[Rfam]
RNA: freshwater-2 RNA
RNA sequence: UCUUACAUCGUGUAGGAGACUUAUGCGGAUACAACCGCGUAGCCAGGAGAACUGGCAUUGGACUCCUAACUAGGAGAAAACAAAUG
Dot-bracket structure: ((((((.....))))))....(((((((......)))))))((((.......))))..............................